[Rfam]
RNA sequence: AAGCGAAGGUCCCAGCAGGGAGGUAAGGACUCUAUAAUUGAGACCUCUCUAACAUCAAAUUUAACCCUUCGCAGAUGAAUAGCCGAACUAUUGGAUGCCAAAUCAUAAAUAUUUGGAUCAUCUUCGAACCCUUGGCAAAAUCUUA
Numbered sequence: 001a002a003g004c005g006a007a008g009g010u011c012c013c014a015g016c017a018g019g020g021a022g023g024u025a026a027g028g029a030c031u032c033u034a035u036a037a038u039u040g041a042g043a044c045c046u047c048u049c050u051a052a053c054a055u056c057a058a059a060u061u062u063a064a065c066c067c068u069u070c071g072c073a074g075a076u077g078a079a080u081a082g083c084c085g086a087a088c089u090a091u092u093g094g095a096u097g098c099c100a101a102a103u104c105a106u107a108a109a110u111a112u113u114u115g116g117a118u119c120a121u122c123u124u125c126g127a128a129c130c131c132u133u134g135g136c137a138a139a140a141u142c143u144u145a
Stems, first nucleotide, its partner, number of pairs: 003072007011020003026048002030042003034038001082136005094122002097119001098116006